[Rfam]
RNA sequence: GGGCUGAAAAAUGCUAACCAGAAACAAGCAGCUUUGUUAAAACCACCUCCUUAGUCUGCGCAAUCUCCCUUGCGCAGACUCUCUU
Numbered sequence: 001g002g003g004c005u006g007a008a009a010a011a012u013g014c015u016a017a018c019c020a021g022a023a024a025c026a027a028g029c030a031g032c033u034u035u036g037u038u039a040a041a042a043c044c045a046c047c048u049c050c051u052u053a054g055u056c057u058g059c060g061c062a063a064u065c066u067c068c069c070u071u072g073c074g075c076a077g078a079c080u081c082u083c084u085u
Stems, first nucleotide, its partner, number of pairs: 039051001041048001053080011